A member of the RNA family "Bacterial small subunit ribosomal RNA" from Silvibacterium dinghuense, 523 nucleotides of a longer RNA. A reference for the family is Yusupov et al. (2001), "Crystal structure of the ribosome at 5.5 A resolution", Science.

RNA sequence: UCAAACGAGAGUUUGAUCCUGGCUCAGAAUCAACGCUGGCGGCGUGCCUAACACAUGCAAGUCGAACGAGAAAGGGACUUCGGUCCUGAGUAAAGUGGCGCACGGGUGAGUAACACGUGACUAACCUACCCUUGAGUGGGGAAUAACUAGGAGAAAUCUUAGCUAAUACCGCAUAACACCUACGGGUCAAAGGAGCAAUUCGCUUAAGGAGGGGGUCGCGGCAGAUUAGUUAGUUGGCGGGGUAAUGGCCCACCAAGACAGUGAUCUGUAUCCGGCCUGAGAGGGCGCACGGACACACUGGAACUGAAACACGGUCCAGACUCCUACGGGAGGCAGCAGUGGGGAAUUUUGCGCAAUGGGGGAAACCCUGACGCAGCAACGCCGCGUGGAGGAUGAAGUCCUUUGGGACGUAAACUCCUUUCGAUCGGGACGAUUAUGACGGUACCGAGAGAAGAAGCCCCGGCUAACUUCGUGCCAGCAGCCGCGGUAAUACGAGGGGGGCGAGCGUUGUUCGGAAUUAUUG
Numbered sequence: 001u002c003a004a005a006c007g008a009g010a011g012u013u014u015g016a017u018c019c020u021g022g023c024u025c026a027g028a029a030u031c032a033a034c035g036c037u038g039g040c041g042g043c044g045u046g047c048c049u050a051a052c053a054c055a056u057g058c059a060a061g062u063c064g065a066a067c068g069a070g071a072a073a074g075g076g077a078c079u080u081c082g083g084u085c086c087u088g089a090g091u092a093a094a095g096u097g098g099c100g101c102a103c104g105g106g107u108g109a110g111u112a113a114c115a116c117g118u119g120a121c122u123a124a125c126c127u128a129c130c131c132u133u134g135a136g137u138g139g140g141g142a143a144u145a146a147c148u149a150g151g152a153g154a155a156a157u158c159u160u161a162g163c164u165a166a167u168a169c170c171g172c173a174u175a176a177c178a179c180c181u182a183c184g185g186g187u188c189a190a191a192g193g194a195g196c197a198a199u200u201c202g203c204u205u206a207a208g209g210a211g212g213g214g215g216u217c218g219c220g221g222c223a224g225a226u227u228a229g230u231u232a233g234u235u236g237g238c239g240g241g242g243u244a245a246u247g248g249c250c251c252a253c254c255a256a257g258a259c260a261g262u263g264a265u266c267u268g269u270a271u272c273c274g275g276c277c278u279g280a281g282a283g284g285g286c287g288c289a290c291g292g293a294c295a296c297a298c299u300g301g302a303a304c305u306g307a308a309a310c311a312c313g314g315u316c317c318a319g320a321c322u323c324c325u326a327c328g329g330g331a332g333g334c335a336g337c338a339g340u341g342g343g344g345a346a347u348u349u350u351g352c353g354c355a356a357u358g359g360g361g362g363a364a365a366c367c368c369u370g371a372c373g374c375a376g377c378a379a380c381g382c383c384g385c386g387u388g389g390a391g392g393a394u395g396a397a398g399u400c401c402u403u404u405g406g407g408a409c410g411u412a413a414a415c416u417c418c419u420u421u422c423g424a425u426c427g428g429g430a431c432g433a434u435u436a437u438g439a440c441g442g443u444a445c446c447g448a449g450a451g452a453a454g455a456a457g458c459c460c461c462g463g464c465u466a467a468c469u470u471c472g473u474g475c476c477a478g479c480a481g482c483c484g485c486g487g488u489a490a491u492a493c494g495a496g497g498g499g500g501g502c503g504a505g506c507g508u509u510g511u512u513c514g515g516a517a518u519u520a521u522u523g
Base pairs, nucleotide, nucleotide: 009025010024011023012022013021027513028512029511030510032509033508034507035506036505037504039385040384041383042382043381044380045378046377047343052341053340054339056338057337058336061099062098063097066096067095070091074087075086076085077084078083106296107295108294116220117219118218119217120216121215122214125213126212130209131208132207133206134205135204136203138172140170141169147162148161149160150159151158152157178187179186180185192201193200194199222268223267224266229259230258231257234256235255236254237253239251240250241249271293272292273291274290275286276285277284278283298319299318300317301316302315321332322331323330324329349375351374352373353372357370358369359368360367361366388418389417390416391415398409399408400407401406422454425448426447427446428445432440457502458501459500460499461498468497469496470495471494472493478485479484

Annotation:
The organism belongs to Silvibacterium, within Bacteria. Clan: SSU clan.